A member of the RNA family "THF (Tetrahydrofolate) riboswitch aptamer" from Sporanaerobacter acetigenes, 93 nucleotides long. A search with the family's covariance model found it, with a score of 80 bits. Gene Ontology term of the family: tetrahydrofolate metabolic process. The base pairs follow the family's consensus structure, which is taken from published work.
RNA sequence: GACAGAGUAGAUAGAGAGCGUUAAGUGUUAAGGGAUGGGAAGUAGCCCUUAAACGAAAGAUAUUUUCUGCGGUUCUCUAUUGCGUCCGCUGUC
Numbered sequence: 001g002a003c004a005g006a007g008u009a010g011a012u013a014g015a016g017a018g019c020g021u022u023a024a025g026u027g028u029u030a031a032g033g034g035a036u037g038g039g040a041a042g043u044a045g046c047c048c049u050u051a052a053a054c055g056a057a058a059g060a061u062a063u064u065u066u067c068u069g070c071g072g073u074u075c076u077c078u079a080u081u082g083c084g085u086c087c088g089c090u091g092u093c
Stems, first nucleotide, its partner, number of pairs: 001093005010081009019071003025054002028052007038087003042083001058068003

Record summary:
The organism belongs to Sporanaerobacter acetigenes, within Bacteria.